[Rfam]
Rfam assigns this 297-nucleotide RNA from Portunus trituberculatus to the family "Metazoan signal recognition particle RNA".
Pairs were carried over by alignment from the consensus structure, which is taken from published work.
RNA sequence: GCCGGGGUUGGUGGCUCAACCCUGUAAUCCGGCGACACGGAGGCUUGGGCCAGGGACGACUUGCGGUCAGGACACCUGCUGCGGGACCCCCCAUACUGAGUGGGCGUCCGCACUAAGCUUGGCAUCAAUAUGGCCGCCUCUUGGGAGCCUGGGGCGUCCAGGUUGCUUAAUGAGGUGUAAUUCGGGCCAGGGGGGAAACCCAGCAGCCAAAAACACCCGUGUCGAGCAGUAGUGGGAUCGCGCCUAUGAGUGGGCGGCCCGUGGCAGCCUUGCCAACAUAGGAGAACUUGGCUCUUU
Numbered sequence: 001g002c003c004g005g006g007g008u009u010g011g012u013g014g015c016u017c018a019a020c021c022c023u024g025u026a027a028u029c030c031g032g033c034g035a036c037a038c039g040g041a042g043g044c045u046u047g048g049g050c051c052a053g054g055g056a057c058g059a060c061u062u063g064c065g066g067u068c069a070g071g072a073c074a075c076c077u078g079c080u081g082c083g084g085g086a087c088c089c090c091c092c093a094u095a096c097u098g099a100g101u102g103g104g105c106g107u108c109c110g111c112a113c114u115a116a117g118c119u120u121g122g123c124a125u126c127a128a129u130a131u132g133g134c135c136g137c138c139u140c141u142u143g144g145g146a147g148c149c150u151g152g153g154g155c156g157u158c159c160a161g162g163u164u165g166c167u168u169a170a171u172g173a174g175g176u177g178u179a180a181u182u183c184g185g186g187c188c189a190g191g192g193g194g195g196a197a198a199c200c201c202a203g204c205a206g207c208c209a210a211a212a213a214c215a216c217c218c219g220u221g222u223c224g225a226g227c228a229g230u231a232g233u234g235g236g237a238u239c240g241c242g243c244c245u246a247u248g249a250g251u252g253g254g255c256g257g258c259c260c261g262u263g264g265c266a267g268c269c270u271u272g273c274c275a276a277c278a279u280a281g282g283a284g285a286a287c288u289u290g291g292c293u294c295u296u297u
Stems, first nucleotide, its partner, number of pairs: 001044003004023008028041003047294008057284001060281002065274003069270003076267010087256001090254005096248001100247008108236002111234005117227009126165004131160003135156006143148001166172001174217005185208003192201003